[Rfam]
RNA sequence: CAGCUCCCAGCCUUGCCGGCACCGUGGCUGCGGCUGCCCUGUUGCACCCGUGACACUGGGGCAGAGAGAAAGUGGCGAUUUCUGUGCUCAGUGCUCAGAACAUUAGGCGCUAAGAGUGAACUGCAGGCGGACUUCA
Numbered sequence: 001c002a003g004c005u006c007c008c009a010g011c012c013u014u015g016c017c018g019g020c021a022c023c024g025u026g027g028c029u030g031c032g033g034c035u036g037c038c039c040u041g042u043u044g045c046a047c048c049c050g051u052g053a054c055a056c057u058g059g060g061g062c063a064g065a066g067a068g069a070a071a072g073u074g075g076c077g078a079u080u081u082c083u084g085u086g087c088u089c090a091g092u093g094c095u096c097a098g099a100a101c102a103u104u105a106g107g108c109g110c111u112a113a114g115a116g117u118g119a120a121c122u123g124c125a126g127g128c129g130g131a132c133u134u135c136a
Base pairs, nucleotide, nucleotide: 005061006060007059008058009057010056024051025050026049027048074128076126083118084117087114088113092109093108094107095106097104